[Rfam]
RNA sequence: GUCAUCGGGGAGCGAUCCCCCGACGAGGCUCCGGCUGAAGAAUCGCGUCCCGACUGCAUUCGAUGCAAGGACGCGUCAUG
Dot-bracket structure: ....((((((.......)))))).....................((((((..................))))))......
Rfam assigns this 80-nucleotide RNA to the family "chrB-a RNA".
By type it is a cis-regulatory element.
The sequence is in the family's curated seed alignment.